[Rfam]
RNA sequence: GUCGGCGACACGGGGUGCCGCACCGAAGCGGCUGAGAUCACACCCGUCGAACCUGAUCUGGUCAACACCAGCGUAGGGAUGUCUGCAUCCGCACGG
Dot-bracket structure: ......((((((((.((((((......))))).......)..)))).....((((..((((......))))..))))..)))).............
Numbered sequence: 001g002u003c004g005g006c007g008a009c010a011c012g013g014g015g016u017g018c019c020g021c022a023c024c025g026a027a028g029c030g031g032c033u034g035a036g037a038u039c040a041c042a043c044c045c046g047u048c049g050a051a052c053c054u055g056a057u058c059u060g061g062u063c064a065a066c067a068c069c070a071g072c073g074u075a076g077g078g079a080u081g082u083c084u085g086c087a088u089c090c091g092c093a094c095g096g
Stems, first nucleotide, its partner, number of pairs: 007083004011046004016040001017032005052077004058071004
The family of this 96-nucleotide RNA from Rhodococcus sp. EPR-157 is "TPP riboswitch aptamer (THI element)". Lineage of the source: Bacteria > Bacillati > Actinomycetota > Nocardiaceae > Rhodococcus. Rfam links the family to the GO term thiamine pyrophosphate binding.